[Rfam]
RNA sequence: CGCCCUGGCAAUGGGCAAAGAGACACCUGAUUUGUAGAGUUGUUCUUAUAUCAGUCAGGGGCAGAACAGAUGGCAGUCCUUUGUUCAUCCUAGCUUGAUGCCUGGCUUGGUGCCAAAGCUGUUUCAUGCCUAGUUCAUAUGA
Numbered sequence: 001c002g003c004c005c006u007g008g009c010a011a012u013g014g015g016c017a018a019a020g021a022g023a024c025a026c027c028u029g030a031u032u033u034g035u036a037g038a039g040u041u042g043u044u045c046u047u048a049u050a051u052c053a054g055u056c057a058g059g060g061g062c063a064g065a066a067c068a069g070a071u072g073g074c075a076g077u078c079c080u081u082u083g084u085u086c087a088u089c090c091u092a093g094c095u096u097g098a099u100g101c102c103u104g105g106c107u108u109g110g111u112g113c114c115a116a117a118g119c120u121g122u123u124u125c126a127u128g129c130c131u132a133g134u135u136c137a138u139a140u141g142a
Stems, first nucleotide, its partner, number of pairs: 002062005008056001012053003018047003022041003026037001082137002086133001097130001099128001103126003108121002111118001